[Rfam]
RNA sequence: UCCAUAUAAAACUAUGUGCUGCUCAUUCACUUUACCGCCUAGCUCAAUGGGCGAGUGGAGGGGAAAGAGCAGCUAGAGUGACUCUUCCGUCUAAGUCUCAUACUUUAUUGUCCUUUUUCGUGGACAGUUUGGAUUCUGCGUGAUGGGAACAAUU
Numbered sequence: 001u002c003c004a005u006a007u008a009a010a011a012c013u014a015u016g017u018g019c020u021g022c023u024c025a026u027u028c029a030c031u032u033u034a035c036c037g038c039c040u041a042g043c044u045c046a047a048u049g050g051g052c053g054a055g056u057g058g059a060g061g062g063g064a065a066a067g068a069g070c071a072g073c074u075a076g077a078g079u080g081a082c083u084c085u086u087c088c089g090u091c092u093a094a095g096u097c098u099c100a101u102a103c104u105u106u107a108u109u110g111u112c113c114u115u116u117u118u119c120g121u122g123g124a125c126a127g128u129u130u131g132g133a134u135u136c137u138g139c140g141u142g143a144u145g146g147g148a149a150c151a152a153u154u
Base pairs, nucleotide, nucleotide: 018073019072021070022069030060031059033057034056036053037052038051039050040049090148091147092146093141095139103132104131107128108127109126110125111124112123113122
Shown here is a 154-nucleotide RNA from Australozyma monospora, a member of the family "Small nucleolar RNA snR8". Rfam classes the family as an H/ACA-box small nucleolar RNA. Gene Ontology terms of the family: RNA processing and nucleolus. Clan: SNORA56 clan.